[Rfam]
RNA sequence: GGAGGCGAACGGGGUCUGGUGGCCCUCCUGGUCUUCAAAACCAGCGGUACGCCAACAGCGUACGGUGGGUUCGAUUCCCAUCCGCUUCC
Numbered sequence: 001g002g003a004g005g006c007g008a009a010c011g012g013g014g015u016c017u018g019g020u021g022g023c024c025c026u027c028c029u030g031g032u033c034u035u036c037a038a039a040a041c042c043a044g045c046g047g048u049a050c051g052c053c054a055a056c057a058g059c060g061u062a063c064g065g066u067g068g069g070u071u072c073g074a075u076u077c078c079c080a081u082c083c084g085c086u087u088c089c
Stems, first nucleotide, its partner, number of pairs: 001089007008081001011026006028044005047063005066080004
RNA: Selenocysteine transfer RNA
Organism: Methylobacterium radiotolerans